Shown here is a 133-nucleotide RNA from Sus scrofa, a member of the family "Small nucleolar RNA SNORA44".
RNA sequence: CAGCCUCAACCCCAGGCCUUUGCAAAGGUAGCUGCCACUCUACAAGAGCCUGCAAAAGCAAUGAGACUUGGACAGAUUUUGAUGGCACAGGUCAGCAUUAUACCUGCAGCUGCCACUCACCUUUCCGAUAAAG
Numbered sequence: 001c002a003g004c005c006u007c008a009a010c011c012c013c014a015g016g017c018c019u020u021u022g023c024a025a026a027g028g029u030a031g032c033u034g035c036c037a038c039u040c041u042a043c044a045a046g047a048g049c050c051u052g053c054a055a056a057a058g059c060a061a062u063g064a065g066a067c068u069u070g071g072a073c074a075g076a077u078u079u080u081g082a083u084g085g086c087a088c089a090g091g092u093c094a095g096c097a098u099u100a101u102a103c104c105u106g107c108a109g110c111u112g113c114c115a116c117u118c119a120c121c122u123u124u125c126c127g128a129u130a131a132a133g
Base pairs, nucleotide, nucleotide: 016029017028018027019026020025070126071125072124074122075121085113086112088106089105090104091103

On this family, see Huttenhofer et al., EMBO J 2001: "RNomics: an experimental approach that identifies 201 candidates for novel, small, non-messenger RNAs in mouse". Rfam's curators write: ACA44 is a member of the H/ACA class of snoRNA that guide the sites of modification of uridines to pseudouridines. By type it is an H/ACA-box small nucleolar RNA.